Description
The family of this 107-nucleotide sequence from Anaerobiospirillum thomasii is "TPP riboswitch aptamer (THI element)". The family's consensus secondary structure is taken from published work.
RNA sequence: UAAAACUUGUCGGAGUGCCGUGCUAGCGGCUGAGAUUGUAUGAAAAUACAAAAUCCGUUGUACCUGAAAAGAGUAAUCUCUGCGUAGGAAACAAGACUUCGGCAUGU
Numbered sequence: 001u002a003a004a005a006c007u008u009g010u011c012g013g014a015g016u017g018c019c020g021u022g023c024u025a026g027c028g029g030c031u032g033a034g035a036u037u038g039u040a041u042g043a044a045a046a047u048a049c050a051a052a053a054u055c056c057g058u059u060g061u062a063c064c065u066g067a068a069a070a071g072a073g074u075a076a077u078c079u080c081u082g083c084g085u086a087g088g089a090a091a092c093a094a095g096a097c098u099u100c101g102g103c104a105u106g107u
Stems, first nucleotide, its partner, number of pairs: 006095005011057004016051001017030005037050005063088004070081003
Dot-bracket structure: .....(((((((((.((((((....)))))......(((((....))))))..)))).....((((...(((......)))...))))..)))))............
NCBI's taxonomy places the organism under Bacteria, Gammaproteobacteria, Aeromonadales, Succinivibrionaceae, Anaerobiospirillum.